[Rfam]
RNA: Small nucleolar RNA Z43
RNA sequence: GGACGGUGACGAUUUCAUUUGUGAAAGGUCUCGUUCGUCGUAAUUGGCUGUUAAAGGCCUUGACGACCAUCCUGAUAUAUCACCACCCAUAUUCCGAGUUC
Number, nucleotide and partner (000 for none) at each position: 001g101002g100003a099004c098005g000006g000007u000008g000009a000010c000011g000012a000013u000014u000015u000016c000017a000018u000019u000020u000021g000022u000023g000024a000025a000026a000027g000028g000029u000030c000031u000032c000033g000034u000035u000036c000037g000038u000039c000040g000041u000042a000043a000044u000045u000046g000047g060048c056049u000050g000051u000052u000053a000054a000055a000056g048057g000058c000059c000060u047061u000062g000063a000064c000065g000066a000067c000068c000069a000070u000071c000072c000073u000074g000075a000076u000077a000078u000079a000080u000081c000082a000083c000084c000085a000086c000087c000088c000089a000090u000091a000092u000093u000094c000095c000096g000097a000098g004099u003100u002101c001